[Rfam]
RNA: sRNA-Xcc1
Organism: Pasteurella multocida
RNA sequence: GAUCGAGAGUGCGAGGAAUACAAUACCGCAAGGGAAUAACUCCGCUAGAGUUUCGACUAGUUUUGAGCUCUCGAUCACCCUAAU
Numbered sequence: 001g002a003u004c005g006a007g008a009g010u011g012c013g014a015g016g017a018a019u020a021c022a023a024u025a026c027c028g029c030a031a032g033g034g035a036a037u038a039a040c041u042c043c044g045c046u047a048g049a050g051u052u053u054c055g056a057c058u059a060g061u062u063u064u065g066a067g068c069u070c071u072c073g074a075u076c077a078c079c080c081u082a083a084u
Stems, first nucleotide, its partner, number of pairs: 001076009013043001015041001017037001026033002044061005
Dot-bracket structure: (((((((((...(.(.(........((....))...)...).)(((((........)))))......)))))))))........